[Rfam]
Annotation
The family of this 96-nucleotide RNA sequence from a Solirubrobacteraceae bacterium is "ZMP/ZTP riboswitch aptamer (pfl RNA motif)". Pairs were carried over by alignment from the consensus structure, which is taken from published work.
RNA sequence: UUAGGGCGUCGCGACCGGCGCCACGGGUGGAACCGACCACCAGGAAGCGACACGGGCCACCUGGCCCAGCCACCGCCGCGCGCCUGGGCACCCCAG
Numbered sequence: 001u002u003a004g005g006g007c008g009u010c011g012c013g014a015c016c017g018g019c020g021c022c023a024c025g026g027g028u029g030g031a032a033c034c035g036a037c038c039a040c041c042a043g044g045a046a047g048c049g050a051c052a053c054g055g056g057c058c059a060c061c062u063g064g065c066c067c068a069g070c071c072a073c074c075g076c077c078g079c080g081c082g083c084c085u086g087g088g089c090a091c092c093c094c095a096g
Stems, first nucleotide, its partner, number of pairs: 006053001008051005015044002017084005027040004075089003
Dot-bracket structure: .....(.(((((..(([[[[[.....((((......))))..))..))))).).....................(((..]]]]]..))).......
It scores 42 bits against the family's covariance model.